[Rfam]
RNA sequence: GCUAAGAACGACCGGGUGCCACGCUGUGCUCCCUCAGGAUUAAGGCGAGUGAACACAGCUGGUGGUAUCUCAGUUGUUCCCUAGUU
Number, nucleotide and partner (000 for none) at each position: 001g000002c000003u000004a000005a000006g000007a000008a077009c076010g075011a074012c073013c000014g071015g069016g068017u000018g066019c065020c000021a063022c062023g000024c058025u057026g056027u000028g054029c000030u052031c051032c000033c000034u000035c000036a000037g000038g000039a000040u000041u000042a000043a000044g000045g000046c000047g000048a000049g000050u000051g031052a030053a000054c028055a000056c026057a025058g024059c000060u000061g000062g022063u021064g000065g019066u018067a000068u016069c015070u000071c014072a000073g012074u011075u010076g009077u008078u000079c000080c000081c000082u000083a000084g000085u000086u000
RNA: mir-317 microRNA precursor family
Organism: Leptidea sinapis